[Rfam]
This 180-nucleotide sequence from Carboxylicivirga sp. M1479 belongs to the Rfam family "Bacteroidales-1 6S-Bacteroidales RNA suggested". Lineage of the source: Bacteria > Pseudomonadati > Bacteroidia > Marinilabiliaceae > Carboxylicivirga. Bacteroidales-1 was first reported in a comparative genomics-based approach of genome and metagenome sequences from Weinberg et al. 2010 In a high-resolution transcriptome map study of Bacteroides thetaiotaomicron, Ryan et al. 2020 report this sRNA as 6S RNA homologue of Bacteroides, in the study they obtain evidence of small product RNAs (pRNAs) related to 6S function. The family's consensus secondary structure is taken from published work.

RNA sequence: CGCAUCAGUCGUUAGAUUGUUAAACUCAACACUAUCAGAACACCGAGUGACGCUAUGUUUUUAAAGAGCGGGCCUCGCCCUUGUGGUUACUACUUGUAGUACGGAGGAUUAUCGAUAAUUACAUGCACUCAAAUCCUGUUUACAGGAGUUUAAAUAAUCCCGGUUGAUGCGGUCUUUUUA
Numbered sequence: 001c002g003c004a005u006c007a008g009u010c011g012u013u014a015g016a017u018u019g020u021u022a023a024a025c026u027c028a029a030c031a032c033u034a035u036c037a038g039a040a041c042a043c044c045g046a047g048u049g050a051c052g053c054u055a056u057g058u059u060u061u062u063a064a065a066g067a068g069c070g071g072g073c074c075u076c077g078c079c080c081u082u083g084u085g086g087u088u089a090c091u092a093c094u095u096g097u098a099g100u101a102c103g104g105a106g107g108a109u110u111a112u113c114g115a116u117a118a119u120u121a122c123a124u125g126c127a128c129u130c131a132a133a134u135c136c137u138g139u140u141u142a143c144a145g146g147a148g149u150u151u152a153a154a155u156a157a158u159c160c161c162g163g164u165u166g167a168u169g170c171g172g173u174c175u176u177u178u179u180a
Base pairs, nucleotide, nucleotide: 052126053125056123057122058121061118062117063116066113067112073107074106075105076104079086080085090099091098092097
Dot-bracket structure: ...................................................((..(((..(((..((.....((((..((....))...(((....)))....))))....))..)))..))).))......................................................